The record is a 96-nucleotide RNA sequence from Vitis vinifera, which matches "Small nucleolar RNA R64/Z200 family" in Rfam. Pairs were carried over by alignment from the consensus structure, which was predicted with PFOLD. It is one of the family's seed sequences.
[Rfam]
RNA sequence: CUUCUGCGAUGAUGAAGUAUGAAAACAAUUCACAUGUCAGACUUCAGAGAUUUUUAAAAAUCUAUGAGAAGAAAAUUCAUAUUUUCUGAGCAGAAG
Number, nucleotide and partner (000 for none) at each position: 001c096002u095003u094004c093005u092006g091007c090008g000009a000010u000011g000012a000013u000014g000015a000016a000017g000018u000019a000020u000021g000022a000023a000024a000025a000026c000027a000028a000029u000030u000031c000032a000033c000034a000035u000036g000037u000038c000039a000040g000041a000042c000043u000044u000045c000046a000047g000048a000049g062050a061051u060052u059053u000054u000055u000056a000057a000058a000059a052060a051061u050062c049063u000064a000065u000066g000067a000068g000069a000070a000071g000072a000073a000074a000075a000076u000077u000078c000079a000080u000081a000082u000083u000084u000085u000086c000087u000088g000089a000090g007091c006092a005093g004094a003095a002096g001
Its family is annotated with nucleolus and RNA processing in the Gene Ontology.
The literature on the family includes a 2002 paper in Mol Cell Biol by Galardi et al., "Purified box C/D snoRNPs are able to reproduce site-specific 2'-O-methylation of target RNA in vitro".
The source organism's lineage runs through Eukaryota, Viridiplantae, Streptophyta, Tracheophyta and Vitis.